[Rfam]
A member of the RNA family "TPP riboswitch aptamer (THI element)" from Enterococcus aquimarinus, 101 nucleotides long.
The family's consensus secondary structure is taken from published work.
RNA sequence: CUGAUCACAAAGGGGAGCCAAUGCGCUGAGAAUGAGUCUUACUCUAAACCCUUCGUACCUGUUUCGGUUAUGCGAACGUAGGAAUUGUGUCGAGUUGAAGU
Numbered sequence: 001c002u003g004a005u006c007a008c009a010a011a012g013g014g015g016a017g018c019c020a021a022u023g024c025g026c027u028g029a030g031a032a033u034g035a036g037u038c039u040u041a042c043u044c045u046a047a048a049c050c051c052u053u054c055g056u057a058c059c060u061g062u063u064u065c066g067g068u069u070a071u072g073c074g075a076a077c078g079u080a081g082g083a084a085u086u087g088u089g090u091c092g093a094g095u096u097g098a099a100g101u
Stems, first nucleotide, its partner, number of pairs: 006089005011052004017026002034044004058082004063076004